The record is a 163-nucleotide RNA from Hathewaya histolytica, which matches "glmS glucosamine-6-phosphate activated ribozyme aptamer" in Rfam. Rfam classes the family as a riboswitch. Pairs were carried over by alignment from the consensus structure, which is taken from published work. Its family is annotated with regulation of gene expression and catalytic activity in the Gene Ontology.
RNA sequence: AAACGAUUUAAAGCGCCAGGAGUUAUAUAGAUAUUUUUAUAUAACUUGACGAGGAUGGGGUUUUAUCGAACCUUCGGCGGGUGCCCCACGGUAUUUGUACUACCGAUAACAACUGAUAAAAGCGAAGAGUGAUUUUCGUUACAAAAUCAGUUAGGUGCAAAUU
Numbered sequence: 001a002a003a004c005g006a007u008u009u010a011a012a013g014c015g016c017c018a019g020g021a022g023u024u025a026u027a028u029a030g031a032u033a034u035u036u037u038u039a040u041a042u043a044a045c046u047u048g049a050c051g052a053g054g055a056u057g058g059g060g061u062u063u064u065a066u067c068g069a070a071c072c073u074u075c076g077g078c079g080g081g082u083g084c085c086c087c088a089c090g091g092u093a094u095u096u097g098u099a100c101u102a103c104c105g106a107u108a109a110c111a112a113c114u115g116a117u118a119a120a121a122g123c124g125a126a127g128a129g130u131g132a133u134u135u136u137c138g139u140u141a142c143a144a145a146a147u148c149a150g151u152u153a154g155g156u157g158c159a160a161a162u163u
Stems, first nucleotide, its partner, number of pairs: 020047008029038001056088005066077004089105005111152005122139007